[Rfam]
RNA sequence: GCCACUCUGGAAAGCAGACGCGAUCGUCAUGGGCGCAUCCCACGACGGAACGUCUCGCCCACGGUGAAAGCCGCAGGACCUCACGGGCCGCGGUGAAGCUCUCAGGCCCAUGACAGAGGGGGAGUU
Dot-bracket structure: .((.(((((......((((................................)))).(((.(..(.(...(((((...............)))))....).))..)))......))))).)).....